The record is a 102-nucleotide RNA sequence from Xenopus laevis, which matches "Vault RNA" in Rfam. It scores 52 bits against the family's covariance model. Pairs were carried over by alignment from the consensus structure, which is taken from published work. About the family: This family of RNAs are found as part of the enigmatic vault ribonucleoprotein complex. The complex consists of a major vault protein (MVP), two minor vault proteins (VPARP and TEP1), and several small untranslated RNA molecules. It has been suggested that the vault complex is involved in drug resistance.

Nucleotides: 102
Base pairs, nucleotide, nucleotide: 002097003096004095005094006093007092015086016085017084018083021081022080023079028076029075
Number, partner (000 for none) and nucleotide at each position: 001000g002097g003096g004095c005094u006093g007092g008000c009000c010000c011000u012000a013000u014000a015086g016085c017084u018083c019000a020000a021081c022080g023079g024000u025000u026000c027000c028076u029075u030000a031000a032000u033000a034000g035000g036000a037000u038000c039000u040000c041000u042000g043000u044000u045000u046000a047000a048000u049000a050000c051000c052000a053000g054000a055000a056000c057000a058000a059000u060000c061000c062000u063000c064000u065000c066000g067000g068000g069000g070000g071000u072000u073000c074000c075029a076028a077000u078000g079023c080022c081021g082000c083018g084017g085016g086015c087000g088000c089000u090000a091000u092007c093006c094005a095004g096003c097002c098000c099000u100000u101000u102000c